[Rfam]
RNA sequence: UUGUAGGUGGCCUCCCAGUUGGUCGCCUCGCCGGUCAGCACAUGCGCGCCGAAGUACUCGCCGUCGGCGAGGACGUCGAGCACGGUGUCGUCGCCGUACUCGCCGGUGCCGAUCUUGUUGACCUUGCCGUGUGCGAUGAGCACGACCUGGUCGGCGGGGUGCCCGGCGGUGGCGAUCACCUGCCCGGGUUCGUACUCGUGUUGGACGAACCGGUCGGCCAGCGCGCCCAGCGCCUGCUCGUCGUCGAAUUCGCGUAGCAGCGGCAGUUCCCGCAGUUCCUGCGGCACGACCCGCACGUCGGCUCCGGUGUUGGUGAAGGUCAGUCGGCCGUCGCCGAGCGUGUAGGUCAGCCGCCGGUUGACCCGGUAGACGCCGCCGGCCGCCUGCACCCACGGCAGCAUCCGCAGCAGCCAGCGGGAGGUGAUGCCCUGCAUCUGCGGGACGGUCUUGGUCGUGGUCGCGAGGUUGCGGGCCGCCGCCGUGCUCAGGCUCAACUGCGGUGCGUCGA
Numbered sequence: 001u002u003g004u005a006g007g008u009g010g011c012c013u014c015c016c017a018g019u020u021g022g023u024c025g026c027c028u029c030g031c032c033g034g035u036c037a038g039c040a041c042a043u044g045c046g047c048g049c050c051g052a053a054g055u056a057c058u059c060g061c062c063g064u065c066g067g068c069g070a071g072g073a074c075g076u077c078g079a080g081c082a083c084g085g086u087g088u089c090g091u092c093g094c095c096g097u098a099c100u101c102g103c104c105g106g107u108g109c110c111g112a113u114c115u116u117g118u119u120g121a122c123c124u125u126g127c128c129g130u131g132u133g134c135g136a137u138g139a140g141c142a143c144g145a146c147c148u149g150g151u152c153g154g155c156g157g158g159g160u161g162c163c164c165g166g167c168g169g170u171g172g173c174g175a176u177c178a179c180c181u182g183c184c185c186g187g188g189u190u191c192g193u194a195c196u197c198g199u200g201u202u203g204g205a206c207g208a209a210c211c212g213g214u215c216g217g218c219c220a221g222c223g224c225g226c227c228c229a230g231c232g233c234c235u236g237c238u239c240g241u242c243g244u245c246g247a248a249u250u251c252g253c254g255u256a257g258c259a260g261c262g263g264c265a266g267u268u269c270c271c272g273c274a275g276u277u278c279c280u281g282c283g284g285c286a287c288g289a290c291c292c293g294c295a296c297g298u299c300g301g302c303u304c305c306g307g308u309g310u311u312g313g314u315g316a317a318g319g320u321c322a323g324u325c326g327g328c329c330g331u332c333g334c335c336g337a338g339c340g341u342g343u344a345g346g347u348c349a350g351c352c353g354c355c356g357g358u359u360g361a362c363c364c365g366g367u368a369g370a371c372g373c374c375g376c377c378g379g380c381c382g383c384c385u386g387c388a389c390c391c392a393c394g395g396c397a398g399c400a401u402c403c404g405c406a407g408c409a410g411c412c413a414g415c416g417g418g419a420g421g422u423g424a425u426g427c428c429c430u431g432c433a434u435c436u437g438c439g440g441g442a443c444g445g446u447c448u449u450g451g452u453c454g455u456g457g458u459c460g461c462g463a464g465g466u467u468g469c470g471g472g473c474c475g476c477c478g479c480c481g482u483g484c485u486c487a488g489g490c491u492c493a494a495c496u497g498c499g500g501u502g503c504g505u506c507g508a
Stems, first nucleotide, its partner, number of pairs: 006390004014382001018328002021325002023322001025320003028316002035313007046304001048302005054233002057230002060227001062225003065111004075103001077102004082097005117222004122217002127212001129210002131206002134203003138199001140197001144195001150191001154189001155187001157185003160178002164174001166173002235295003240290005249283001251281002254278001256277003260271001262269001329342003351379003355375003363369001391431002394428004399423003403418001405416001407415001437476004443470002447465003451461002477507002480502003484499001486497003